A member of the RNA family "MIR2593 microRNA precursor family" from Medicago truncatula, 107 nucleotides long.
RNA sequence: AUAUAAGCAAAUUUUACUUUUUAAGUUCAUUCCAUUAAUGAUGUAUGUGGUCAUGGACCACAUACAUCAUUAAUGGAAUGAACUUAAAAAGUAAAAUUUGCUUAUAU
Numbered sequence: 001a002u003a004u005a006a007g008c009a010a011a012u013u014u015u016a017c018u019u020u021u022u023a024a025g026u027u028c029a030u031u032c033c034a035u036u037a038a039u040g041a042u043g044u045a046u047g048u049g050g051u052c053a054u055g056g057a058c059c060a061c062a063u064a065c066a067u068c069a070u071u072a073a074u075g076g077a078a079u080g081a082a083c084u085u086a087a088a089a090a091g092u093a094a095a096a097u098u099u100g101c102u103u104a105u106a107u
Base pairs, nucleotide, nucleotide: 002106003105004104005103006102007101008100009099010098011097012096014094015093016092017091018090019089020088021087022086023085024084026082027081028080029079030078031077032076033075034074035073036072037071038070039069040068041067042066043065048060049059050058051057

Its family is annotated with RISC complex and miRNA-mediated post-transcriptional gene silencing in the Gene Ontology. Lineage of the source: Eukaryota > Embryophyta > rosids > Papilionoideae > Medicago.